[Rfam]
Group I catalytic intron: a 435-nucleotide sequence from Drechslerella stenobrocha. Rfam 15.1 lists 5,602 matches to the family in 1,395 species. Gene Ontology term of the family: Group I intron splicing. Group I catalytic introns are large self-splicing ribozymes. They catalyse their own excision from mRNA, tRNA and rRNA precursors in a wide range of organisms. The core secondary structure consists of 9 paired regions (P1-P9). A search with the family's covariance model found it, with a score of 102 bits. NCBI's taxonomy places the organism under Eukaryota, Dikarya, Pezizomycotina, Orbiliaceae, Drechslerella stenobrocha.
RNA sequence: UCAUUUGUCUAACAAAGUUGGAGAUGAGACGUCCAUUGAUACUAAAAACGAACAGAAUCUCAAAUGUGUAGGCUACCAAGUGAGGGUCAAGCGACGUAAAAGACGUUCGCUAGUGGGAUUGCCUCAAAGCAAUCCUGCAACACUGUCAAAUUGCGGGAACUUCCUAAAGCCUCUGCCACCGCGGCCUGCCGAAAGGCAAGGUGCAGCACCAGGGUAAUGACCUCGGGUAUGGUAACAGCGCAGAGGAUGCAACAAUGGAUAAUCCGCAGCCAAGUCCUAAGUCCUAGGAUGCUUCAGAAUCGUCUGCUGAAGCGUUCGCAACGGGAUAUGGAUGCAGUUCAACGACUAGAUGGCAGUGGGUCCGGGGAAAGACAGCUGGCAGCAGCUCCCACAACGGGCUUAAGAUAUAGUCUGACGAUCUGUUGAAAAACAUGC
Numbered sequence: 001u002c003a004u005u006u007g008u009c010u011a012a013c014a015a016a017g018u019u020g021g022a023g024a025u026g027a028g029a030c031g032u033c034c035a036u037u038g039a040u041a042c043u044a045a046a047a048a049c050g051a052a053c054a055g056a057a058u059c060u061c062a063a064a065u066g067u068g069u070a071g072g073c074u075a076c077c078a079a080g081u082g083a084g085g086g087u088c089a090a091g092c093g094a095c096g097u098a099a100a101a102g103a104c105g106u107u108c109g110c111u112a113g114u115g116g117g118a119u120u121g122c123c124u125c126a127a128a129g130c131a132a133u134c135c136u137g138c139a140a141c142a143c144u145g146u147c148a149a150a151u152u153g154c155g156g157g158a159a160c161u162u163c164c165u166a167a168a169g170c171c172u173c174u175g176c177c178a179c180c181g182c183g184g185c186c187u188g189c190c191g192a193a194a195g196g197c198a199a200g201g202u203g204c205a206g207c208a209c210c211a212g213g214g215u216a217a218u219g220a221c222c223u224c225g226g227g228u229a230u231g232g233u234a235a236c237a238g239c240g241c242a243g244a245g246g247a248u249g250c251a252a253c254a255a256u257g258g259a260u261a262a263u264c265c266g267c268a269g270c271c272a273a274g275u276c277c278u279a280a281g282u283c284c285u286a287g288g289a290u291g292c293u294u295c296a297g298a299a300u301c302g303u304c305u306g307c308u309g310a311a312g313c314g315u316u317c318g319c320a321a322c323g324g325g326a327u328a329u330g331g332a333u334g335c336a337g338u339u340c341a342a343c344g345a346c347u348a349g350a351u352g353g354c355a356g357u358g359g360g361u362c363c364g365g366g367g368a369a370a371g372a373c374a375g376c377u378g379g380c381a382g383c384a385g386c387u388c389c390c391a392c393a394a395c396g397g398g399c400u401u402a403a404g405a406u407a408u409a410g411u412c413u414g415a416c417g418a419u420c421u422g423u424u425g426a427a428a429a430a431c432a433u434g435c
Base pairs, nucleotide, nucleotide: 006024008022009021010020011019012018013017141358142357143356144355145354147352148351152268153267154266155265156264157263162259163258164257269338270337274333275332276331277330282326283325284324285323342413344412345411346410347409348408360399361398362397363396364395367392421432422431423430424429